[Rfam]
RNA sequence: CCUGGGCAGUGCCUUCAGGACUGUCCAACCUGAGAAUGGUGAGCAUCCAGGGACAAUCUCAGGUUCGUCAGCCCGCAAGGUGCCGUUCCCUC
Numbered sequence: 001c002c003u004g005g006g007c008a009g010u011g012c013c014u015u016c017a018g019g020a021c022u023g024u025c026c027a028a029c030c031u032g033a034g035a036a037u038g039g040u041g042a043g044c045a046u047c048c049a050g051g052g053a054c055a056a057u058c059u060c061a062g063g064u065u066c067g068u069c070a071g072c073c074c075g076c077a078a079g080g081u082g083c084c085g086u087u088c089c090c091u092c
Stems, first nucleotide, its partner, number of pairs: 004089003007085001009083007018074002021071003025067001027065009037055002
Dot-bracket structure: ...((((.(((((((..((.(((.(.(((((((((.((...............)).))))))))).).))).))..))))))).).)))...